A member of the RNA family "small nucleolar RNA snoR134" from Elaeis guineensis, 144 nucleotides long.
The base pairs follow the family's consensus structure, which was predicted with RNAalifold.
On this family, see Chen and Wu, Nucleic Acids Res 2009: "Mining small RNA sequencing data: a new approach to identify small nucleolar RNAs in Arabidopsis".
By type it is an H/ACA-box small nucleolar RNA.
The family has 5 seed sequences and 792 matches in Rfam 15.1.
RNA sequence: UUGCACGGAGCACCCUGGGCUUUCCUGAAGAACUCCGUGAUGACAGAAUCCCCAACGAUCAUACCAGAUGGAUUCGCCGUUCCUUGUUAUAGUUCUGUUCACAAAUUCGAACGACCGAUCUAUGUGAAUGCAAUGGCUAAAUUU
Numbered sequence: 001u002u003g004c005a006c007g008g009a010g011c012a013c014c015c016u017g018g019g020c021u022u023u024c025c026u027g028a029a030g031a032a033c034u035c036c037g038u039g040a041u042g043a044c045a046g047a048a049u050c051c052c053c054a055a056c057g058a059u060c061a062u063a064c065c066a067g068a069u070g071g072a073u074u075c076g077c078c079g080u081u082c083c084u085u086g087u088u089a090u091a092g093u094u095c096u097g098u099u100c101a102c103a104a105a106u107u108c109g110a111a112c113g114a115c116c117g118a119u120c121u122a123u124g125u126g127a128a129u130g131c132a133a134u135g136g137c138u139a140a141a142u143u144u
Stems, first nucleotide, its partner, number of pairs: 003064001005062001007060002011057001017052003021048001022046002025042001076137006085127001088124005097115003